[Rfam]
RNA sequence: GUACGUCUUCGGGGCGGGGUGCAAGUCCCCACCGGCGGUAAGGCCGCAAGGCCAAGCCCGCGAGCGCCUUCAUGUGAAGGGUCAGCAGAUCUGGUGCGAAUCCAGAGCCGACGGUAAUAGUCCGGAUGAAAGAAGAUGACG
Numbered sequence: 001g002u003a004c005g006u007c008u009u010c011g012g013g014g015c016g017g018g019g020u021g022c023a024a025g026u027c028c029c030c031a032c033c034g035g036c037g038g039u040a041a042g043g044c045c046g047c048a049a050g051g052c053c054a055a056g057c058c059c060g061c062g063a064g065c066g067c068c069u070u071c072a073u074g075u076g077a078a079g080g081g082u083c084a085g086c087a088g089a090u091c092u093g094g095u096g097c098g099a100a101u102c103c104a105g106a107g108c109c110g111a112c113g114g115u116a117a118u119a120g121u122c123c124g125g126a127u128g129a130a131a132g133a134a135g136a137u138g139a140c141g
Stems, first nucleotide, its partner, number of pairs: 004138007017029003031121002033110002035061004056108002064086002090106005112124003
Dot-bracket structure: ...(((((((......(((.......))).[[((((((.................[[))))..((...................))...(((((.......)))))]])).(((.....]]))).......)))))))...

Rfam assigns this 141-nucleotide RNA from Vogesella sp. LIG4 to the family "FMN riboswitch aptamer (RFN element)". Pairs were carried over by alignment from the consensus structure, which is taken from published work. The match comes from Rfam's covariance-model search (118 bits).